A member of the RNA family "Archaeal large subunit ribosomal RNA" from Candidatus Caldarchaeum subterraneum, 87 nucleotides of a longer RNA.
Clan: LSU clan.
It scores 2451 bits against the family's covariance model.

RNA sequence: AACUCGGCAAAUUAGCCCCGUAACUUCGGGAGAAGGGGUGCCUGAGGCCUUGGCCGCGAGGCUGGGGCCUUAGGUCGCAGUGACUAG
Numbered sequence: 001a002a003c004u005c006g007g008c009a010a011a012u013u014a015g016c017c018c019c020g021u022a023a024c025u026u027c028g029g030g031a032g033a034a035g036g037g038g039u040g041c042c043u044g045a046g047g048c049c050u051u052g053g054c055c056g057c058g059a060g061g062c063u064g065g066g067g068c069c070u071u072a073g074g075u076c077g078c079a080g081u082g083a084c085u086a087g
Base pairs, nucleotide, nucleotide: 015039016038017037018036019035024029040075041074042073043072044071045070046069047068048067049066050065051064052063053062054061055060076080